[Rfam]
RNA: Small nucleolar RNA Z278
Organism: Arachis hypogaea
RNA sequence: GUCUGUGAUUAUUCAACCCAACCGUUUAAAAUGUUGUGGAGCUAAGACUCUGUUUACAGGGAGAACCUACUUGGUGAAGCUACAUUCAUUUGAUUUCAAUGGGUUCAACUGAGAC
Numbered sequence: 001g002u003c004u005g006u007g008a009u010u011a012u013u014c015a016a017c018c019c020a021a022c023c024g025u026u027u028a029a030a031a032u033g034u035u036g037u038g039g040a041g042c043u044a045a046g047a048c049u050c051u052g053u054u055u056a057c058a059g060g061g062a063g064a065a066c067c068u069a070c071u072u073g074g075u076g077a078a079g080c081u082a083c084a085u086u087c088a089u090u091u092g093a094u095u096u097c098a099a100u101g102g103g104u105u106c107a108a109c110u111g112a113g114a115c
Stems, first nucleotide, its partner, number of pairs: 001115003048061005